Overview: The record is a 106-nucleotide sequence from Nitrosomonas cryotolerans, which matches "Guanidine-I riboswitch aptamer" in Rfam. Pairs were carried over by alignment from the consensus structure. This family represents a conserved RNA structure found upstream of the ykkC and yxkD genes in Bacillus subtilis and related genes in other bacteria. The function of this family is unclear although it has been suggested that it may function to switch on efflux pumps and detoxification systems in response to harmful environmental molecules. Gene Ontology term of the family: regulation of gene expression. On this family, see Barrick et al., Proc Natl Acad Sci U S A 2004: "New RNA motifs suggest an expanded scope for riboswitches in bacterial genetic control".
RNA sequence: AGCAAGGGAAACUAGGGUUCCGGCCUUUUUAAUUAAAGGUGUCUGGUCCGAGAGUUUCCGGUCUCGUCAUAACGAGGCUCCACGGAGGGAUAAAAACCCGGGAGAU
Numbered sequence: 001a002g003c004a005a006g007g008g009a010a011a012c013u014a015g016g017g018u019u020c021c022g023g024c025c026u027u028u029u030u031a032a033u034u035a036a037a038g039g040u041g042u043c044u045g046g047u048c049c050g051a052g053a054g055u056u057u058c059c060g061g062u063c064u065c066g067u068c069a070u071a072a073c074g075a076g077g078c079u080c081c082a083c084g085g086a087g088g089g090a091u092a093a094a095a096a097c098c099c100g101g102g103a104g105a106u
Stems, first nucleotide, its partner, number of pairs: 007059006015049002020046002022043001023040006060079008081101001083104001087099003